[Rfam]
RNA sequence: CCUCCCGUGACGAUGGAUCUUGGUGACUUUCGUUCUUCUGAGCUUGCUGAAGCCACAUUGCAUUUCGAUCUGAGGAGG
Number, nucleotide and partner (000 for none) at each position: 001c078002c077003u076004c000005c074006c000007g000008u000009g000010a000011c000012g000013a000014u000015g000016g000017a000018u000019c000020u000021u000022g000023g000024u000025g000026a000027c000028u000029u000030u000031c000032g000033u000034u000035c000036u000037u000038c000039u000040g000041a000042g000043c000044u000045u000046g000047c000048u000049g000050a000051a000052g000053c000054c000055a000056c000057a000058u000059u000060g000061c000062a000063u000064u000065u000066c000067g000068a000069u000070c000071u000072g000073a000074g005075g000076a003077g002078g001
This 78-nucleotide sequence from Alectura lathami belongs to the Rfam family "Small nucleolar RNA SNORD59". The match comes from Rfam's covariance-model search (62 bits). Its family is annotated with nucleolus and RNA processing in the Gene Ontology. For this family Rfam cites "Purified box C/D snoRNPs are able to reproduce site-specific 2'-O-methylation of target RNA in vitro" (Galardi et al., Mol Cell Biol, 2002). The family's consensus secondary structure was predicted with ILM. By type it is a C/D-box small nucleolar RNA.